[Rfam]
RNA sequence: AUUGCAUCCAAACCCCAAAAGAUCCUUGUUUUUCCUUGACAAUGAUCUUAUCUUGCGUGCAGACAGUAAAUGGGUCUUGUCGCCUUUCUGGAGCUAAUAAAAGUGCCUCAGAAAGUCAAAUGGUGGGUUCUACACUC
Numbered sequence: 001a002u003u004g005c006a007u008c009c010a011a012a013c014c015c016c017a018a019a020a021g022a023u024c025c026u027u028g029u030u031u032u033u034c035c036u037u038g039a040c041a042a043u044g045a046u047c048u049u050a051u052c053u054u055g056c057g058u059g060c061a062g063a064c065a066g067u068a069a070a071u072g073g074g075u076c077u078u079g080u081c082g083c084c085u086u087u088c089u090g091g092a093g094c095u096a097a098u099a100a101a102a103g104u105g106c107c108u109c110a111g112a113a114a115g116u117c118a119a120a121u122g123g124u125g126g127g128u129u130c131u132a133c134a135c136u137c
Base pairs, nucleotide, nucleotide: 002062003061004060005059006058007057009055021047022046023045024044026042027041028040029039030038072130073129074128075127076126077125084115085114086113087112088111089110090109091108093106094105
This 137-nucleotide RNA from Phascolarctos cinereus belongs to the Rfam family "Small nucleolar RNA SNORA68". Rfam classes the family as an H/ACA-box small nucleolar RNA. Taxonomically the source falls in Phascolarctos (Eukaryota, Deuterostomia, Tetrapoda, Theria). On this family, see Ganot et al., Genes Dev 1997: "The family of box ACA small nucleolar RNAs is defined by an evolutionarily conserved secondary structure and ubiquitous sequence elements essential for RNA accumulation". It scores 84 bits against the family's covariance model.